[Rfam]
RNA sequence: CCAGUAUCACUUCCUUAUCACUUUUCCAGCCCAGCUUUUCAUGACAAACUGUUGGACGGAGAACUGAUAAGGCUGUGUGACUG
Numbered sequence: 001c002c003a004g005u006a007u008c009a010c011u012u013c014c015u016u017a018u019c020a021c022u023u024u025u026c027c028a029g030c031c032c033a034g035c036u037u038u039u040c041a042u043g044a045c046a047a048a049c050u051g052u053u054g055g056a057c058g059g060a061g062a063a064c065u066g067a068u069a070a071g072g073c074u075g076u077g078u079g080a081c082u083g
Base pairs, nucleotide, nucleotide: 013072014071015070016069017068018067019066020065022063023062024061025060026059027058030055031054
Annotation
Shown here is an 83-nucleotide RNA from Xenopus tropicalis, a member of the family "mir-184 microRNA precursor family". A reference for the family is Chen et al. (2005), "The developmental miRNA profiles of zebrafish as determined by small RNA cloning", Genes Dev.